[Rfam]
Shown here is a 75-nucleotide RNA from Rhinopithecus roxellana, a member of the family "tRNA". A search with the family's covariance model found it, with a score of 52 bits. Transfer RNA (tRNA) molecules are approximately 80 nucleotides in length. It is annotated as a transfer RNA.
RNA sequence: GUUAAGAUGGCAGAGCCCGGCAAUUGCAUAAAAUUUAAGACUUUACAAUCAGAGGUUCAACUCCUCUUCUUAACA
Numbered sequence: 001g002u003u004a005a006g007a008u009g010g011c012a013g014a015g016c017c018c019g020g021c022a023a024u025u026g027c028a029u030a031a032a033a034u035u036u037a038a039g040a041c042u043u044u045a046c047a048a049u050c051a052g053a054g055g056u057u058c059a060a061c062u063c064c065u066c067u068u069c070u071u072a073a074c075a
Stems, first nucleotide, its partner, number of pairs: 001074007010027004029045004051067005